Rfam assigns this 284-nucleotide part of an RNA from Theileria parva to the family "Eukaryotic large subunit ribosomal RNA". The sequence is in the family's curated seed alignment. Taxonomically the source falls in Theileria (Eukaryota, Aconoidasida, Piroplasmida, Theileriidae). On this family, see Yusupov et al., Science 2001: "Crystal structure of the ribosome at 5.5 A resolution". Rfam 15.1 lists 107,465 matches to the family in 2,616 species. Rfam links the family to the GO terms structural constituent of ribosome and ribosome.
RNA sequence: GAGUCUAACACUCGUGCAAGUGUUUGGGUGGCAAACCCGUACGCGAAAUGAAAGUGAAAGCAUGGCCUUGGGACUUUGUCGUCUCAAUUCACAUGCGGCCGGUCGCCUUUGGGUGGAUUGCGCAGGAGCAUGGUUGUUAGGACCCGAAAGAUGGUGAACUAUGCCUGGGUAGGAUGAAGUCAGGCGAAAGCCUGAUGGAGGUCCGCCGCGAUACUGACGUGCAAAUCGUUCGUCAAACCUGGGUAUAGGGGCGAAAGACUAAUCGAACCAUCUAGUAGCUGGUU
Number, nucleotide and partner (000 for none) at each position: 001g000002a000003g000004u000005c140006u139007a138008a137009c136010a135011c000012u133013c132014g131015u130016g129017c128018a000019a000020g044021u043022g042023u000024u000025u039026g038027g037028g036029u035030g000031g000032c000033a000034a000035a029036c028037c027038c026039g025040u000041a000042c022043g021044c020045g000046a000047a000048a055049u054050g000051a000052a000053a000054g049055u048056g000057a000058a000059a000060g096061c095062a094063u093064g092065g000066c000067c000068u087069u086070g085071g084072g083073a082074c000075u000076u000077u000078g000079u000080c000081g000082u073083c072084u071085c070086a069087a068088u000089u000090c000091a000092c064093a063094u062095g061096c060097g000098g123099c122100c120101g119102g118103u116104c115105g114106c113107c112108u000109u000110u000111g000112g107113g106114u105115g104116g103117a000118u102119u101120g100121c000122g099123c098124a000125g000126g000127a000128g017129c016130a015131u014132g013133g012134u000135u010136g009137u008138u007139a006140g005141g000142a000143c282144c281145c000146g279147a000148a000149a000150g272151a271152u270153g269154g268155u267156g000157a000158a000159c248160u247161a246162u245163g244164c243165c242166u241167g240168g239169g238170u236171a000172g204173g203174a202175u201176g000177a000178a000179g196180u195181c194182a193183g192184g191185c190186g000187a000188a000189a000190g185191c184192c183193u182194g181195a180196u179197g000198g000199a000200g000201g175202u174203c173204c172205g000206c000207c000208g233209c232210g231211a230212u000213a229214c228215u000216g227217a226218c000219g000220u000221g000222c000223a000224a000225a000226u217227c216228g214229u213230u211231c210232g209233u208234c000235a000236a170237a000238c169239c168240u167241g166242g165243g164244u163245a162246u161247a160248g159249g000250g260251g259252c000253g000254a000255a000256a000257g000258a000259c251260u250261a000262a000263u000264c000265g000266a000267a155268c154269c153270a152271u151272c150273u000274a000275g000276u000277a000278g000279c146280u000281g144282g143283u000284u000